[Rfam]
RNA sequence: AGAUCCUUUAAAACUGUCCCGUGAGGCAGGCAAGGAGUCACGUGAAUAAUAGCUGGUGGUCUGUUUUUAGACUAUCCGAUUGAUUAUGUCCUAAAGUCUCCUUGUGUAGGAGAUUUUUUUUGU
Numbered sequence: 001a002g003a004u005c006c007u008u009u010a011a012a013a014c015u016g017u018c019c020c021g022u023g024a025g026g027c028a029g030g031c032a033a034g035g036a037g038u039c040a041c042g043u044g045a046a047u048a049a050u051a052g053c054u055g056g057u058g059g060u061c062u063g064u065u066u067u068u069a070g071a072c073u074a075u076c077c078g079a080u081u082g083a084u085u086a087u088g089u090c091c092u093a094a095a096g097u098c099u100c101c102u103u104g105u106g107u108a109g110g111a112g113a114u115u116u117u118u119u120u121u122g123u
Base pairs, nucleotide, nucleotide: 004036005035006034007033008032014029015028016027017026018025051080053078055076056075057074058073059072060071061070062069063068093117094116095115096114097113098112099111100110102109103108
RNA: PyrR binding site